[Rfam]
RNA sequence: GGGUUAAUGCUAAUCGUGAUAGGGGUUGUUCUCAACAAGACGCCUAGCAUGCUAGCAUUAGCCU
Number, nucleotide and partner (000 for none) at each position: 001g000002g000003g000004u061005u060006a059007a058008u057009g056010c055011u054012a053013a000014u051015c000016g000017u000018g000019a000020u046021a045022g044023g043024g000025g041026u040027u039028g000029u000030u000031c000032u000033c000034a000035a000036c000037a000038a000039g027040a026041c025042g000043c023044c022045u021046a020047g000048c000049a000050u000051g014052c000053u012054a011055g010056c009057a008058u007059u006060a005061g004062c000063c000064u000
RNA: mir-155 microRNA precursor family